[Rfam]
RNA: c-di-GMP-I riboswitch aptamer
Organism: Tenderia electrophaga
RNA sequence: AUCCGAAAAAGGCUACCCCGAACGAAAGGUCGGGGGCGCAAAGUCACCGGCCUAAGGGGCGCAGCCCUAAGGCAGCGGGAUUGCCGGA
Numbered sequence: 001a002u003c004c005g006a007a008a009a010a011g012g013c014u015a016c017c018c019c020g021a022a023c024g025a026a027a028g029g030u031c032g033g034g035g036g037c038g039c040a041a042a043g044u045c046a047c048c049g050g051c052c053u054a055a056g057g058g059g060c061g062c063a064g065c066c067c068u069a070a071g072g073c074a075g076c077g078g079g080a081u082u083g084c085c086g087g088a
Stems, first nucleotide, its partner, number of pairs: 012039002017034005023028001042082004047078003050073003057067004